[Rfam]
RNA sequence: UCGGGACCAAGCAACCUCCCGAUCAGGCUUCCGGCCCAAGCGUUGC
Numbered sequence: 001u002c003g004g005g006a007c008c009a010a011g012c013a014a015c016c017u018c019c020c021g022a023u024c025a026g027g028c029u030u031c032c033g034g035c036c037c038a039a040g041c042g043u044u045g046c
Base pairs, nucleotide, nucleotide: 001022002021003020004019005018006017011046012045013044014043015042026036027035028034
RNA: chrB-b RNA